[Rfam]
RNA: Bacterial RNase P class A
Organism: Massiliimalia timonensis
RNA sequence: CGAGCAAACUGUGUGGUAGCGCUGCGGCGAGGAAAGUCCGGGCAUCACAGGGCAGGAUAGCUGCUAACAGCAGCCGGAGGCGACUCUAGGGCGAGUGCAACAGAAAGAAACCGCCGUAUUUACGGUAAGGAUGGAAAGGCGAGGUAAGAGCUCACCAGCGUGCGGGGAACUGUACGGCUAUGUAAACCCUAUCCGAUGCAACACCGACAAGGAUGGAUUCGUUGGCCCGACGGUCCUGAAAGGUGGCACUGAGCACAUUGCGGCGACGCUGUGCCAAGAUAGAUUACCACAAAAACAGAACCCGGCUUAUAGGUUUGGUCGCAUU
Dot-bracket structure: (((.((((((((((((((.(((....)))....[[[.[[[[[((((...[[[[.((((((((((.....)))))(((((....)))).)((...(((((...........(((((((....)))))..)).......((.(((.......))).)).((((((((....))))))).)..)))..)))))))))))))...((((......(......(((((.]]]])))))..).....)))).......(((((..(((....))))))))..........))))))).........]]]]]]]].).)))))).)))....